[Rfam]
Nucleotides: 152
Base pairs, nucleotide, nucleotide: 002034003033004032006031007029008028011025012024013023014022038054039053040051041050064151065150066149067148069081070080071079072078087144088143089142090141091140092139094138099129101126102125103124104123106121109118110117111116
Number, partner (000 for none) and nucleotide at each position: 001000g002034a003033u004032g005000u006031c007029u008028u009000c010000a011025u012024c013023g014022g015000u016000g017000u018000g019000u020000a021000g022014u023013u024012g025011a026000g027000a028008a029007a030000c031006g032004c033003g034002u035000a036000u037000c038054c039053a040051c041050g042000u043000g044000c045000c046000u047000g048000g049000u050041c051040g052000a053039u054038g055000a056000u057000g058000u059000g060000a061000a062000a063000c064151a065150g066149c067148g068000g069081g070080u071079u072078c073000c074000a075000c076000g077000c078072g079071a080070a081069c082000a083000u084000g085000u086000a087144g088143a089142a090141c091140a092139u093000c094138g095000u096000g097000a098000a099129g100000c101126c102125a103124a104123g105000c106121u107000g108000g109118u110117u111116g112000g113000c114000c115000a116111c117110g118109a119000a120000c121106a122000u123104c124103u125102u126101g127000c128000c129099c130000g131000a132000a133000a134000a135000g136000a137000a138094c139092a140091u141090g142089u143088u144087c145000a146000u147000c148067c149066g150065c151064u152000u
This 152-nucleotide RNA sequence from Albidovulum inexpectatum belongs to the Rfam family "Ruegeria cis2 sRNA". The match comes from Rfam's covariance-model search (60 bits). Lineage of the source: Bacteria > Pseudomonadati > Rhodobacterales > Paracoccaceae > Albidovulum. The family's RNA type in Rfam is small RNA.